[Rfam]
RNA: Plastid-clpP 5UTR RNA
RNA sequence: UUUGAUUCGUAGGAACAAAGAGAAGCAAAUUUAUUCUAUACUCGAUAAGUCCCAAUGCGCAAUGGG
Numbered sequence: 001u002u003u004g005a006u007u008c009g010u011a012g013g014a015a016c017a018a019a020g021a022g023a024a025g026c027a028a029a030u031u032u033a034u035u036c037u038a039u040a041c042u043c044g045a046u047a048a049g050u051c052c053c054a055a056u057g058c059g060c061a062a063u064g065g066g
Stems, first nucleotide, its partner, number of pairs: 001020002006015003041066003049058002